[Rfam]
RNA sequence: CGGUGGGGUAGAGGCGCAAAAUUAAAGAGUAGGCUGUUGGAGUAUGACAACGAGGAAAACAGCUGAAAGGGAAUUUUGCCGAAGCAAUAGACGGGCGUCAACCUCCUAUUGCUGGGGCAGUCUUGAAUAAGGGCUGCACUGUCAUUAUGAGAAAAAUCUCAUAAUGGGGAGCUACAGAUCGU
Numbered sequence: 001c002g003g004u005g006g007g008g009u010a011g012a013g014g015c016g017c018a019a020a021a022u023u024a025a026a027g028a029g030u031a032g033g034c035u036g037u038u039g040g041a042g043u044a045u046g047a048c049a050a051c052g053a054g055g056a057a058a059a060c061a062g063c064u065g066a067a068a069g070g071g072a073a074u075u076u077u078g079c080c081g082a083a084g085c086a087a088u089a090g091a092c093g094g095g096c097g098u099c100a101a102c103c104u105c106c107u108a109u110u111g112c113u114g115g116g117g118c119a120g121u122c123u124u125g126a127a128u129a130a131g132g133g134c135u136g137c138a139c140u141g142u143c144a145u146u147a148u149g150a151g152a153a154a155a156a157u158c159u160c161a162u163a164a165u166g167g168g169g170a171g172c173u174a175c176a177g178a179u180c181g182u
Base pairs, nucleotide, nucleotide: 008175009174010173011172016079017078018077019076020075021074022073023072032064033063034062035061036060037059038058083113084112085111086110087109088108089107090106093103094102114140115139117137118136119135120134121133122132123131124130142167143166144165145164146163147162148161149160150159

Lysine riboswitch aptamer: a 182-nucleotide sequence from Bacillus oleivorans. The organism belongs to Bacillus, within Bacteria. Its family is annotated with lysine biosynthetic process in the Gene Ontology.